A member of the RNA family "ybhL leader" from Aquibium oceanicum, 75 nucleotides long. The family's RNA type in Rfam is cis-regulatory leader. About the family: This family is a putative regulatory RNA structure that is found upstream of an uncharacterized membrane protein in alpha-proteobacteria.
[Rfam]
RNA sequence: CAGGCAUGCUGGAGUCCCGCCAGCGGCGCCUGGGCGGAUCGGGUUCGGUACCGCCCGACACCGGACGGGACAGAA
Numbered sequence: 001c002a003g004g005c006a007u008g009c010u011g012g013a014g015u016c017c018c019g020c021c022a023g024c025g026g027c028g029c030c031u032g033g034g035c036g037g038a039u040c041g042g043g044u045u046c047g048g049u050a051c052c053g054c055c056c057g058a059c060a061c062c063g064g065a066c067g068g069g070a071c072a073g074a075a
Stems, first nucleotide, its partner, number of pairs: 014071006024063003031057007
About this RNA:
A search with the family's covariance model found it, with a score of 65 bits. For this family Rfam cites "Evidence for a second class of S-adenosylmethionine riboswitches and other regulatory RNA motifs in alpha-proteobacteria" (Corbino et al., Genome Biol, 2005). The organism belongs to Aquibium, within Bacteria.